[Rfam]
RNA sequence: CAAGUUUAAAACUAUAGCAGAAGUGCUCAAGGCGUGGCCUGUCAGAUUCCAAUGAAUCUGUGAAUUCUGGA
Numbered sequence: 001c002a003a004g005u006u007u008a009a010a011a012c013u014a015u016a017g018c019a020g021a022a023g024u025g026c027u028c029a030a031g032g033c034g035u036g037g038c039c040u041g042u043c044a045g046a047u048u049c050c051a052a053u054g055a056a057u058c059u060g061u062g063a064a065u066u067c068u069g070g071a
Base pairs, nucleotide, nucleotide: 012037013036018069019068020067021066022065023035024034025033043060044059045058046057047056048055049054
The record is a 71-nucleotide RNA from Alligator mississippiensis, which matches "Mammalian CPEB3 ribozyme" in Rfam. It scores 39 bits against the family's covariance model. The source organism's lineage runs through Eukaryota, Deuterostomia, Chordata, Amniota and Alligator. The family's consensus secondary structure is taken from published work.